Shown here is a 372-nucleotide RNA from Hyphomonas sp. CY54-11-8, a member of the family "Bacterial RNase P class A". Pairs were carried over by alignment from the consensus structure, which is taken from published work. By type it is a ribozyme. The source organism's lineage runs through Bacteria, Pseudomonadati, Pseudomonadota, Hyphomonadaceae and Hyphomonas.
RNA sequence: CCAGACGGCCGGGCAGCCGCUGGCAUGCUGGUAACGGCAUGCUGGAGGAAAGUCCGGGCUCCAGGGAUACAGGGCGACGGCUAACGGCCGCCCGGCGCAAGCCGAGGGAAAGUGCCACAGAAAGCAAACCGCCUCCCCUCGCGGGAGGUAAGGGUGAAAGGGUGGGGUAAGAGCCCACCGCGGGACUGGCGACAGGACCGGCACGGUAAACCCCGCCCGGAGCAAGACCGAAUAGGGGGCGCGCAUGGGCUGUAUCCCGCCUGCGCCCCGGGUGUGUCGCGUGAGGUGCCUGGCAACAGGCAUCCCAGAGGAAUGGCUGCCAGACCUGAGCAAUCAGGCGAACAGAACCCGGCUUACAGGCCGUCUGGUCUU
Numbered sequence: 001c002c003a004g005a006c007g008g009c010c011g012g013g014c015a016g017c018c019g020c021u022g023g024c025a026u027g028c029u030g031g032u033a034a035c036g037g038c039a040u041g042c043u044g045g046a047g048g049a050a051a052g053u054c055c056g057g058g059c060u061c062c063a064g065g066g067a068u069a070c071a072g073g074g075c076g077a078c079g080g081c082u083a084a085c086g087g088c089c090g091c092c093c094g095g096c097g098c099a100a101g102c103c104g105a106g107g108g109a110a111a112g113u114g115c116c117a118c119a120g121a122a123a124g125c126a127a128a129c130c131g132c133c134u135c136c137c138c139u140c141g142c143g144g145g146a147g148g149u150a151a152g153g154g155u156g157a158a159a160g161g162g163u164g165g166g167g168u169a170a171g172a173g174c175c176c177a178c179c180g181c182g183g184g185a186c187u188g189g190c191g192a193c194a195g196g197a198c199c200g201g202c203a204c205g206g207u208a209a210a211c212c213c214c215g216c217c218c219g220g221a222g223c224a225a226g227a228c229c230g231a232a233u234a235g236g237g238g239g240c241g242c243g244c245a246u247g248g249g250c251u252g253u254a255u256c257c258c259g260c261c262u263g264c265g266c267c268c269c270g271g272g273u274g275u276g277u278c279g280c281g282u283g284a285g286g287u288g289c290c291u292g293g294c295a296a297c298a299g300g301c302a303u304c305c306c307a308g309a310g311g312a313a314u315g316g317c318u319g320c321c322a323g324a325c326c327u328g329a330g331c332a333a334u335c336a337g338g339c340g341a342a343c344a345g346a347a348c349c350c351g352g353c354u355u356a357c358a359g360g361c362c363g364u365c366u367g368g369u370c371u372u
Stems, first nucleotide, its partner, number of pairs: 001368010011357001012321007020045009050355003054352005059222004072218005078090004092106001093104004107213002112211002114207003129153002131149007161179006180202001181200003186195003226278003236269006247262004285304008